[Rfam]
RNA: mir-3473 microRNA precursor family
Organism: Sciurus carolinensis
RNA sequence: CCAACUGAGCUAUCUCCCCAGCCCCAUUUUUAUUUUUCAUAAAAUGUAAUUUAGGGCUGGGGAGAUAGCUCAGUUGG
Numbered sequence: 001c002c003a004a005c006u007g008a009g010c011u012a013u014c015u016c017c018c019c020a021g022c023c024c025c026a027u028u029u030u031u032a033u034u035u036u037u038c039a040u041a042a043a044a045u046g047u048a049a050u051u052u053a054g055g056g057c058u059g060g061g062g063a064g065a066u067a068g069c070u071c072a073g074u075u076g077g
Stems, first nucleotide, its partner, number of pairs: 002076023